[Rfam]
Shown here is an 80-nucleotide sequence from Cnephaeus nilssonii, a member of the family "mir-9186 microRNA precursor family".

RNA sequence: UAGGGUGAGGGUUGCGGUAUGGCUGGUACUGAGGUAAUGGCUGCCCCCAGUACCAGACAUGCCGUCCCCCUCCCCCUACA
Numbered sequence: 001u002a003g004g005g006u007g008a009g010g011g012u013u014g015c016g017g018u019a020u021g022g023c024u025g026g027u028a029c030u031g032a033g034g035u036a037a038u039g040g041c042u043g044c045c046c047c048c049a050g051u052a053c054c055a056g057a058c059a060u061g062c063c064g065u066c067c068c069c070c071u072c073c074c075c076c077u078a079c080a
Stems, first nucleotide, its partner, number of pairs: 001078005007072004014065007023056009
The family has 31 seed sequences and 143 matches in Rfam 15.1. Lineage of the source: Eukaryota > Metazoa > Teleostomi > Amniota > Cnephaeus. The base pairs follow the family's consensus structure, which was predicted with RNAalifold.